About this RNA
The family of this 45-nucleotide RNA sequence from Vitis vinifera is "Plastid-rpl16 group II-D1 intron". The base pairs follow the family's consensus structure, which was predicted with LocARNA. Taxonomically the source falls in Vitis (Eukaryota, Mesangiospermae, eudicotyledons, Gunneridae). The literature on the family includes a 2023 paper in Plant Commun by Richter et al., "Retrograde signaling in plants: A critical review focusing on the GUN pathway and beyond". Rfam describes the family as follows. Plastid-rpl16 is a non-coding RNA (ncRNA) recognised in plastids.

[Rfam]
RNA sequence: AAGAACCUAAAGCCAAUAAAGACUUAGAGGAUUGACUCAAGAAUA
Numbered sequence: 001a002a003g004a005a006c007c008u009a010a011a012g013c014c015a016a017u018a019a020a021g022a023c024u025u026a027g028a029g030g031a032u033u034g035a036c037u038c039a040a041g042a043a044u045a
Base pairs, nucleotide, nucleotide: 007041008040011037012036014034015033016032017031